[Rfam]
The record is a 148-nucleotide sequence from Pseudoglutamicibacter albus, which matches "FMN riboswitch aptamer (RFN element)" in Rfam. The match comes from Rfam's covariance-model search (95 bits).
RNA sequence: CACGUGCUCCGGGGUCGGUGAAAGUCCGAACCGGCGGUGAUAGUCCGCGACCCGUUGCCUCAGCUUGAGUAAAUGCUCUUGAAGGGGGACGGCUGAACUGGUGAAAAUCCAGUACCGACAGUAAAAGUCUGGAUGGGAGAAGCACGGU
Numbered sequence: 001c002a003c004g005u006g007c008u009c010c011g012g013g014g015u016c017g018g019u020g021a022a023a024g025u026c027c028g029a030a031c032c033g034g035c036g037g038u039g040a041u042a043g044u045c046c047g048c049g050a051c052c053c054g055u056u057g058c059c060u061c062a063g064c065u066u067g068a069g070u071a072a073a074u075g076c077u078c079u080u081g082a083a084g085g086g087g088g089a090c091g092g093c094u095g096a097a098c099u100g101g102u103g104a105a106a107a108u109c110c111a112g113u114a115c116c117g118a119c120a121g122u123a124a125a126a127g128u129c130u131g132g133a134u135g136g137g138a139g140a141a142g143c144a145c146g147g148u
Stems, first nucleotide, its partner, number of pairs: 003146006010139001016028003030128002032117002034048004043115002052092005097113005119131003